Rfam assigns this 76-nucleotide RNA from Austrofundulus limnaeus to the family "Small nucleolar RNA SNORD66". A reference for the family is Huttenhofer et al. (2001), "RNomics: an experimental approach that identifies 201 candidates for novel, small, non-messenger RNAs in mouse", EMBO J. The source organism's lineage runs through Eukaryota, Bilateria, Chordata, Euteleosteomorpha and Austrofundulus. From the family's description: snoRNA HBII-142 is part of the C/D family of snoRNAs. It is the human orthologue of the mouse MBII-142 snoRNA and is predicted to guide 2'O-ribose methylation of small 18S rRNA at residue C1272. By type it is a C/D-box small nucleolar RNA.
[Rfam]
RNA sequence: CUUCAGUGAUGACUUUGUCUUUGUGCCACGUGUCUGGGCCACUGAUGAUUAAUGAUGGGUUUGAGGAACUGAGAAG
Numbered sequence: 001c002u003u004c005a006g007u008g009a010u011g012a013c014u015u016u017g018u019c020u021u022u023g024u025g026c027c028a029c030g031u032g033u034c035u036g037g038g039c040c041a042c043u044g045a046u047g048a049u050u051a052a053u054g055a056u057g058g059g060u061u062u063g064a065g066g067a068a069c070u071g072a073g074a075a076g
Base pairs, nucleotide, nucleotide: 001076002075003074004073